This 158-nucleotide sequence from Streptomycetaceae bacterium MP113-05 belongs to the Rfam family "c-di-AMP riboswitch aptamer (ydaO/yuaA leader)".
RNA sequence: GUCGCGUCAGCGCCGUAGGCAGGAGCGGGGGACCCAGGUAAGCCGCCGCACCCGAAGGAGGGAGCGGCUCGGGGCGUAUCCGCCCGCGGCAGCGGACGGACGGGCACUCUCCGGCCCGAGCCCGACAGCUCACCCCGCAGGCGUCGGUGAGGAGACAG
Numbered sequence: 001g002u003c004g005c006g007u008c009a010g011c012g013c014c015g016u017a018g019g020c021a022g023g024a025g026c027g028g029g030g031g032a033c034c035c036a037g038g039u040a041a042g043c044c045g046c047c048g049c050a051c052c053c054g055a056a057g058g059a060g061g062g063a064g065c066g067g068c069u070c071g072g073g074g075c076g077u078a079u080c081c082g083c084c085c086g087c088g089g090c091a092g093c094g095g096a097c098g099g100a101c102g103g104g105c106a107c108u109c110u111c112c113g114g115c116c117c118g119a120g121c122c123c124g125a126c127a128g129c130u131c132a133c134c135c136c137g138c139a140g141g142c143g144u145c146g147g148u149g150a151g152g153a154g155a156c157a158g
Stems, first nucleotide, its partner, number of pairs: 001142003007024002025138006035071001072123003080099003102117004